[Rfam]
RNA sequence: AUAAACUGGCCAUGUUUUCUUCGUAUAACCCCAAUAAUAUGGUUUGGGGGUUUCUACCAGUCCCCGGAAAGUGCUGAUUAUGAAGAGUAUAGAUUACAGU
Numbered sequence: 001a002u003a004a005a006c007u008g009g010c011c012a013u014g015u016u017u018u019c020u021u022c023g024u025a026u027a028a029c030c031c032c033a034a035u036a037a038u039a040u041g042g043u044u045u046g047g048g049g050g051u052u053u054c055u056a057c058c059a060g061u062c063c064c065c066g067g068a069a070a071g072u073g074c075u076g077a078u079u080a081u082g083a084a085g086a087g088u089a090u091a092g093a094u095u096a097c098a099g100u
Stems, first nucleotide, its partner, number of pairs: 018086008029049006058076004063071001